The family of this 116-nucleotide sequence from Halanaerobium salsuginis is "FMN riboswitch aptamer (RFN element)". NCBI's taxonomy places the organism under Bacteria, Bacillati, Bacillota, Halanaerobiaceae, Halanaerobium. The base pairs follow the family's consensus structure, which is taken from published work. The match comes from Rfam's covariance-model search (118 bits).
RNA sequence: AUAAAUCUUUGGGGUAGGGUGAAAUUCCCAAACGGCGGUAAAAGUCCGCGAACUUAUGAGUUGAUUUGGUGGAAUUCCAAAACCGACAGUUAUAGUCUGGAUGGAAAAAGAUUUAG
Numbered sequence: 001a002u003a004a005a006u007c008u009u010u011g012g013g014g015u016a017g018g019g020u021g022a023a024a025u026u027c028c029c030a031a032a033c034g035g036c037g038g039u040a041a042a043a044g045u046c047c048g049c050g051a052a053c054u055u056a057u058g059a060g061u062u063g064a065u066u067u068g069g070u071g072g073a074a075u076u077c078c079a080a081a082a083c084c085g086a087c088a089g090u091u092a093u094a095g096u097c098u099g100g101a102u103g104g105a106a107a108a109a110g111a112u113u114u115a116g
Stems, first nucleotide, its partner, number of pairs: 003114008017029003031096001033085002035049004044083002052061003065081005087099003